Shown here is an 85-nucleotide sequence from Ensifer meliloti, a member of the family "Glycine riboswitch aptamer".

[Rfam]
RNA sequence: CGACCUCGUUGGGAGAAACCGGUUCGAUCCGGUGCCGAAGGAGCAACCGCCCCGGAAACUCUCAGGCCAAAGGACCAGCAAGGUG
Numbered sequence: 001c002g003a004c005c006u007c008g009u010u011g012g013g014a015g016a017a018a019c020c021g022g023u024u025c026g027a028u029c030c031g032g033u034g035c036c037g038a039a040g041g042a043g044c045a046a047c048c049g050c051c052c053c054g055g056a057a058a059c060u061c062u063c064a065g066g067c068c069a070a071a072g073g074a075c076c077a078g079c080a081a082g083g084u085g
Stems, first nucleotide, its partner, number of pairs: 006081001008079005019032004034067003037063002041061003047055002